[Rfam]
RNA sequence: CCACAUCCAUCUGUAGAUCCGAAUUUGUUCUAAUAUUUAACUGACAAAUUCGGUUCUAGAGAGGUUUGUGUG
Numbered sequence: 001c002c003a004c005a006u007c008c009a010u011c012u013g014u015a016g017a018u019c020c021g022a023a024u025u026u027g028u029u030c031u032a033a034u035a036u037u038u039a040a041c042u043g044a045c046a047a048a049u050u051c052g053g054u055u056c057u058a059g060a061g062a063g064g065u066u067u068g069u070g071u072g
Stems, first nucleotide, its partner, number of pairs: 002070004010062003015057003019053011